[Rfam]
RNA: tRNA
Organism: Cladophialophora carrionii
RNA sequence: GGUUGUAUAGUGUAGUGGUUAUCACUCCGGAUUUUGAGCAUAAUUUAUUCCGGCAACCCCGGUUCGAACCCGGGUACGACCU
Numbered sequence: 001g002g003u004u005g006u007a008u009a010g011u012g013u014a015g016u017g018g019u020u021a022u023c024a025c026u027c028c029g030g031a032u033u034u035u036g037a038g039c040a041u042a043a044u045u046u047a048u049u050c051c052g053g054c055a056a057c058c059c060c061g062g063u064u065c066g067a068a069c070c071c072g073g074g075u076a077c078g079a080c081c082u
Base pairs, nucleotide, nucleotide: 001081002080003079004078005077006076007075010025011024012023027053028052029051030050031049058074059073060072061071062070